[Rfam]
RNA sequence: UCCAACGACCUGUGUCGGAUUGUCCCGCCCACCUUCCGGGGUGUGCGCGGUUGCACAGUCUGACGGUUCGUCCGUCCUAUGGAGCCAUCAAAUUCCCAUGAUGUCAAUUUCCGGUCGACAGGUUGGAGAGAGAGUCGGCGCGUUGGUACUGCCUGAGUUUGCCGUGAGGUUUGAGCUCGGUGGGAAGGCGUGGCCAGGGCGACUGAUUCCUACUCCCUUUGCUGAGGCCGUCGGCUGGUGAAGUUGGGGAAUAACCCAGUCUAGCCUACAUAC
Numbered sequence: 001u002c003c004a005a006c007g008a009c010c011u012g013u014g015u016c017g018g019a020u021u022g023u024c025c026c027g028c029c030c031a032c033c034u035u036c037c038g039g040g041g042u043g044u045g046c047g048c049g050g051u052u053g054c055a056c057a058g059u060c061u062g063a064c065g066g067u068u069c070g071u072c073c074g075u076c077c078u079a080u081g082g083a084g085c086c087a088u089c090a091a092a093u094u095c096c097c098a099u100g101a102u103g104u105c106a107a108u109u110u111c112c113g114g115u116c117g118a119c120a121g122g123u124u125g126g127a128g129a130g131a132g133a134g135u136c137g138g139c140g141c142g143u144u145g146g147u148a149c150u151g152c153c154u155g156a157g158u159u160u161g162c163c164g165u166g167a168g169g170u171u172u173g174a175g176c177u178c179g180g181u182g183g184g185a186a187g188g189c190g191u192g193g194c195c196a197g198g199g200c201g202a203c204u205g206a207u208u209c210c211u212a213c214u215c216c217c218u219u220u221g222c223u224g225a226g227g228c229c230g231u232c233g234g235c236u237g238g239u240g241a242a243g244u245u246g247g248g249g250a251a252u253a254a255c256c257c258a259g260u261c262u263a264g265c266c267u268a269c270a271u272a273c
Stems, first nucleotide, its partner, number of pairs: 006125008014064006021057003024053001025050004029045001030043002032040002073117002076114002080106003084102001086100001135193002140189001150182004155178006162169002198266003201261005214250005221244003226236004